[Rfam]
RNA sequence: GCGUGCCGAUGAUGAUGCAAAAGCAUCGGUGAAUUCUGGAUGAACGCGCUUGCGCACCACCAGUGCGCAGAGCUCUCGUGAUAUCCACUGCGUAAUUAUCUGAGGCACAC
Numbered sequence: 001g002c003g004u005g006c007c008g009a010u011g012a013u014g015a016u017g018c019a020a021a022a023g024c025a026u027c028g029g030u031g032a033a034u035u036c037u038g039g040a041u042g043a044a045c046g047c048g049c050u051u052g053c054g055c056a057c058c059a060c061c062a063g064u065g066c067g068c069a070g071a072g073c074u075c076u077c078g079u080g081a082u083a084u085c086c087a088c089u090g091c092g093u094a095a096u097u098a099u100c101u102g103a104g105g106c107a108c109a110c
Stems, first nucleotide, its partner, number of pairs: 003108005